[Rfam]
RNA: terC RNA
RNA sequence: ACCCCAAUCCGGUCCCUUCUGGCACAGGUGCUGUCGAUAGCGUGUGCGAUGUCGGGUGGCAUCG
Numbered sequence: 001a002c003c004c005c006a007a008u009c010c011g012g013u014c015c016c017u018u019c020u021g022g023c024a025c026a027g028g029u030g031c032u033g034u035c036g037a038u039a040g041c042g043u044g045u046g047c048g049a050u051g052u053c054g055g056g057u058g059g060c061a062u063c064g
Base pairs, nucleotide, nucleotide: 007057008056009055010054011053012052022047023046024045025044026043027041029039